RNA: drz-agam-1 ribozyme
RNA sequence: UGCCUAGCAACUCUUAUCCCUACCUCCUCGUGGUACUGGCCGGGGUACGAGUAAUCUCAGGGAAGAUUUGUUUUUAUUCCGCGAGUGGCGUGAG
Numbered sequence: 001u002g003c004c005u006a007g008c009a010a011c012u013c014u015u016a017u018c019c020c021u022a023c024c025u026c027c028u029c030g031u032g033g034u035a036c037u038g039g040c041c042g043g044g045g046u047a048c049g050a051g052u053a054a055u056c057u058c059a060g061g062g063a064a065g066a067u068u069u070g071u072u073u074u075u076a077u078u079c080c081g082c083g084a085g086u087g088g089c090g091u092g093a094g
Base pairs, nucleotide, nucleotide: 013094014093015092016091017090018088019087021085022034023033024032045080047078050075051074053072054071